[Rfam]
The family of this 88-nucleotide RNA from Ectobacillus ponti is "c-di-GMP-I riboswitch aptamer". The organism belongs to Ectobacillus, within Bacteria. Pairs were carried over by alignment from the consensus structure, which is taken from published work.

RNA sequence: GGACGUAAAAGGCAAAUCUACUGAAAGGUAGAGACGCAAAGUCACGGGUCUAAGGCAUGGUGCAUGCUAUGACAGCCGGACUGCCAUA
Numbered sequence: 001g002g003a004c005g006u007a008a009a010a011g012g013c014a015a016a017u018c019u020a021c022u023g024a025a026a027g028g029u030a031g032a033g034a035c036g037c038a039a040a041g042u043c044a045c046g047g048g049u050c051u052a053a054g055g056c057a058u059g060g061u062g063c064a065u066g067c068u069a070u071g072a073c074a075g076c077c078g079g080a081c082u083g084c085c086a087u088a
Stems, first nucleotide, its partner, number of pairs: 012037002017032006040082004045078003048073003055067004